[Rfam]
RNA: mir-166 microRNA precursor family
RNA sequence: GUUAAGGGGAUUGUUGUCUGGUUCAAGGUCUCCACAUUGUGCAAAAUGUUCAUUCAUGGAGGCACAGGAUGCUUGGUGAUCUCGGACCAGGCUUCAAUCCCUUUAAC
Numbered sequence: 001g002u003u004a005a006g007g008g009g010a011u012u013g014u015u016g017u018c019u020g021g022u023u024c025a026a027g028g029u030c031u032c033c034a035c036a037u038u039g040u041g042c043a044a045a046a047u048g049u050u051c052a053u054u055c056a057u058g059g060a061g062g063c064a065c066a067g068g069a070u071g072c073u074u075g076g077u078g079a080u081c082u083c084g085g086a087c088c089a090g091g092c093u094u095c096a097a098u099c100c101c102u103u104u105a106a107c
Stems, first nucleotide, its partner, number of pairs: 001107013016092006024084001026082001